[Rfam]
RNA: Small nucleolar RNA SNORD71
Organism: Crocodylus porosus
RNA sequence: UGUGCUGUUGGAGGAUGAAGCUUUAGAGUGAUCCAUCGGCAGAGCGUUCCCUUGCAAUGCUGACACUCAAGCUGCUGACAACGCACU
Number, nucleotide and partner (000 for none) at each position: 001u000002g086003u085004g084005c083006u000007g082008u081009u080010g076011g075012a000013g034014g033015a032016u031017g000018a029019a000020g000021c000022u000023u000024u000025a000026g000027a000028g000029u018030g000031a016032u015033c014034c013035a000036u063037c062038g061039g060040c059041a000042g000043a000044g055045c054046g053047u000048u000049c000050c000051c000052u000053u046054g045055c044056a000057a000058u000059g040060c039061u038062g037063a036064c000065a000066c000067u000068c000069a000070a000071g000072c000073u000074g000075c011076u010077g000078a000079c000080a009081a008082c007083g005084c004085a003086c002087u000